This 347-nucleotide sequence from Tissierella creatinophila belongs to the Rfam family "Bacterial RNase P class A". Pairs were carried over by alignment from the consensus structure, which is taken from published work. Rfam's curators write: Ribonuclease P (RNase P) is a ubiquitous endoribonuclease, found in archaea, bacteria and eukarya as well as chloroplasts and mitochondria. Its best characterised activity is the generation of mature 5'-ends of tRNAs by cleaving the 5'-leader elements of precursor-tRNAs. Cellular RNase Ps are ribonucleoproteins. RNA from bacterial RNase Ps retains its catalytic activity in the absence of the protein subunit, i.e. it is a ribozyme. The family's RNA type in Rfam is ribozyme. A search with the family's covariance model found it, with a score of 297 bits.

RNA sequence: AGAGUAAGUUGUUUGAUCGCGUGCUUUAUAAGCAUGAGGAAAGUCCGUGCUCCAUAGAGCAAGAUGCUGGAUAACGUCCAGUGGGGGCAACCCUAAGGAUAGUGCAACAGAGAGAUACCGCCUAUCUAUUAUAUAGAUAGGUAAGGGUGGAAAGGUGAGGUAAGAGCUCACCAGCGUUUAGGUGACUAAGCGGCUAUGUAAACCCCAUCUGGAGCAAGACCAAAAAGGAUAACAAAGGGUAGUGGCUCGUUACCUUUCCAAUGGUAGGUCGCAUGAACUUAUUGGCAACAAUAAGUCUAGAUAGAUGAUCAAAUAAACAGAACACGGCUUAUAGAUUUACUCUUAAA
Numbered sequence: 001a002g003a004g005u006a007a008g009u010u011g012u013u014u015g016a017u018c019g020c021g022u023g024c025u026u027u028a029u030a031a032g033c034a035u036g037a038g039g040a041a042a043g044u045c046c047g048u049g050c051u052c053c054a055u056a057g058a059g060c061a062a063g064a065u066g067c068u069g070g071a072u073a074a075c076g077u078c079c080a081g082u083g084g085g086g087g088c089a090a091c092c093c094u095a096a097g098g099a100u101a102g103u104g105c106a107a108c109a110g111a112g113a114g115a116u117a118c119c120g121c122c123u124a125u126c127u128a129u130u131a132u133a134u135a136g137a138u139a140g141g142u143a144a145g146g147g148u149g150g151a152a153a154g155g156u157g158a159g160g161u162a163a164g165a166g167c168u169c170a171c172c173a174g175c176g177u178u179u180a181g182g183u184g185a186c187u188a189a190g191c192g193g194c195u196a197u198g199u200a201a202a203c204c205c206c207a208u209c210u211g212g213a214g215c216a217a218g219a220c221c222a223a224a225a226a227g228g229a230u231a232a233c234a235a236a237g238g239g240u241a242g243u244g245g246c247u248c249g250u251u252a253c254c255u256u257u258c259c260a261a262u263g264g265u266a267g268g269u270c271g272c273a274u275g276a277a278c279u280u281a282u283u284g285g286c287a288a289c290a291a292u293a294a295g296u297c298u299a300g301a302u303a304g305a306u307g308a309u310c311a312a313a314u315a316a317a318c319a320g321a322a323c324a325c326g327g328c329u330u331a332u333a334g335a336u337u338u339a340c341u342c343u344u345a346a347a
Stems, first nucleotide, its partner, number of pairs: 001343010011332001012313007020036007041330003045327005050214004057248004062210005067081005082096001083094004097205002102203002104199003118146002120142009154172006174194001175192007218270004228259001231257002239253005277296008